[Rfam]
RNA sequence: GGCUGAGACAUCGCUCCUCUCCUCCUCCCUGGAGCGGUGUCGAACAUACCGAAGGGUCUCUCUCCUCCUCCCUGAGACCCGAGGUAGAAAAAGACGGUGGCGCUCUCUCCUCCUCCCUGAGCGCCGCCGUUUUU
Numbered sequence: 001g002g003c004u005g006a007g008a009c010a011u012c013g014c015u016c017c018u019c020u021c022c023u024c025c026u027c028c029c030u031g032g033a034g035c036g037g038u039g040u041c042g043a044a045c046a047u048a049c050c051g052a053a054g055g056g057u058c059u060c061u062c063u064c065c066u067c068c069u070c071c072c073u074g075a076g077a078c079c080c081g082a083g084g085u086a087g088a089a090a091a092a093g094a095c096g097g098u099g100g101c102g103c104u105c106u107c108u109c110c111u112c113c114u115c116c117c118u119g120a121g122c123g124c125c126g127c128c129g130u131u132u133u134u
Base pairs, nucleotide, nucleotide: 007041008040009039011037012036013035014034015033016032017031047086048085049084050083055079056078057077058076059075060074095129096128097127098126099125100124101123102122103121104120105119
A member of the RNA family "Alphaproteobacterial ar14" from Thioclava dalianensis, 134 nucleotides long. It scores 60 bits against the family's covariance model. About the family: Smr14C2 was renamed NfeR1 (Nodule Formation Efficiency RNA) highly expressed in salt stress and during the symbiotic interaction on legume roots. Gene Ontology term of the family: biological process involved in symbiotic interaction.